[Rfam]
RNA sequence: CAUCAAUGCUGAAUUAGUGUUUGGCUUGAUGGUUAUUUAAUACUUUGUUUUUACAAUUAAUUUGUACGAAUAAAGUUCACACUAAGGAUAAAAUUAUGUCUUUAAAUGCUGCUGAAAAAGCUGCUAUCGUUGCAGAAUACGCACAAAAAGAA
Number, nucleotide and partner (000 for none) at each position: 001c000002a000003u000004c000005a000006a000007u000008g025009c024010u023011g022012a021013a000014u000015u000016a000017g000018u000019g000020u000021u012022u011023g010024g009025c008026u000027u000028g000029a000030u000031g000032g000033u000034u000035a000036u000037u000038u000039a000040a000041u000042a000043c000044u000045u000046u000047g000048u106049u105050u104051u000052u000053a000054c000055a000056a000057u000058u000059a000060a000061u000062u000063u000064g000065u000066a000067c000068g000069a000070a000071u000072a000073a000074a000075g000076u000077u000078c000079a000080c000081a000082c000083u000084a000085a102086g101087g100088a000089u000090a000091a000092a000093a000094u000095u000096a000097u000098g000099u000100c087101u086102u085103u000104a050105a049106a048107u000108g000109c000110u000111g000112c000113u000114g000115a000116a000117a000118a000119a000120g000121c000122u000123g000124c000125u000126a000127u000128c000129g000130u000131u000132g000133c000134a000135g000136a000137a000138u000139a000140c000141g000142c000143a000144c000145a000146a000147a000148a000149a000150g000151a000152a000

A member of the RNA family "Ribosomal S15 leader" from Litorilituus lipolyticus, 152 nucleotides long. On this family, see Benard et al., Biochimie 1996: "Pseudoknot and translational control in the expression of the S15 ribosomal protein". The family is grouped with related families in Rfam's "Ribosomal Protein S15 Leader clan". The match comes from Rfam's covariance-model search (57 bits). From the family's description: The E. coli Ribosomal S15 gene 5' UTR can form two alternative structures. One that is a series of three hairpins, The other includes a pseudoknot. Rfam classes the family as a cis-regulatory leader.